This 92-nucleotide sequence from Candidatus Hydrogenisulfobacillus filiaventi belongs to the Rfam family "Selenocysteine transfer RNA". A reference for the family is Mizutani and Goto (2000), "Eukaryotic selenocysteine tRNA has the 9/4 secondary structure", FEBS Lett. The base pairs follow the family's consensus structure, which is taken from published work. Its Rfam clan is "tRNA clan".

RNA sequence: GGGGGCAGGUGGCGGGCUGGUGCCCUCCUUGGACUUCAAAUCCAGUGGCGGGCCUGGACGGUCCGCGGUGGGUUCGAUUCCCACAUGCUCCC
Numbered sequence: 001g002g003g004g005g006c007a008g009g010u011g012g013c014g015g016g017c018u019g020g021u022g023c024c025c026u027c028c029u030u031g032g033a034c035u036u037c038a039a040a041u042c043c044a045g046u047g048g049c050g051g052g053c054c055u056g057g058a059c060g061g062u063c064c065g066c067g068g069u070g071g072g073u074u075c076g077a078u079u080c081c082c083a084c085a086u087g088c089u090c091c092c
Base pairs, nucleotide, nucleotide: 001092002091003090004089005088006087007086009084012027014025015024016023017022029045030044031043032042033041048066049065050064051063052062069083070082071081072080